Shown here is a 73-nucleotide RNA from Alligator sinensis, a member of the family "Mammalian CPEB3 ribozyme". From the family's description: The mammalian CPEB3 ribozyme is a self cleaving RNA located in the second intron of the CPEB3 gene which belongs to a family of genes regulating messenger RNA polyadenylation. The family's consensus secondary structure is taken from published work.
RNA sequence: AAAGGUCACAAGUUACAGUAGAAACACUCCUGGUGCAGCCCUGUCAGAUUCCAAUUAAUCUGCAAAUUCUGCU
Numbered sequence: 001a002a003a004g005g006u007c008a009c010a011a012g013u014u015a016c017a018g019u020a021g022a023a024a025c026a027c028u029c030c031u032g033g034u035g036c037a038g039c040c041c042u043g044u045c046a047g048a049u050u051c052c053a054a055u056u057a058a059u060c061u062g063c064a065a066a067u068u069c070u071g072c073u
Stems, first nucleotide, its partner, number of pairs: 012039003017073007025035002045062006
It scores 36 bits against the family's covariance model.